The record is an 89-nucleotide sequence from Anopheles gambiae, which matches "mir-7 microRNA precursor family" in Rfam. The base pairs follow the family's consensus structure, which was predicted with PFOLD. The literature on the family includes a 2001 paper in Cell by Ambros, "microRNAs: tiny regulators with great potential". This family represents the microRNA (miRNA) precursor mir-7. It scores 67 bits against the family's covariance model.
Nucleotides: 089
Base pairs, nucleotide, nucleotide: 002088003087004086005085006084008083009082011080012079013078014077015076017074018073020072021071022070023069026066028064029063030062031061032060034059035058036057037056038055039054
Number, partner (000 for none) and nucleotide at each position: 001000u002088g003087g004086c005085a006084a007000a008083a009082c010000a011080u012079u013078g014077u015076a016000u017074g018073g019000a020072a021071g022070a023069c024000u025000a026066g027000u028064g029063a030062u031061u032060u033000u034059g035058u036057u037056g038055u039054u040000u041000g042000g043000c044000u045000u046000a047000u048000g049000a050000u051000a052000c053000u054039a055038a056037c057036a058035a059034u060032a061031a062030a063029u064028c065000u066026c067000u068000c069023g070022u071021c072020u073018u074017u075000c076015u077014a078013c079012a080011a081000a082009g083008u084006u085005u086004g087003c088002c089000c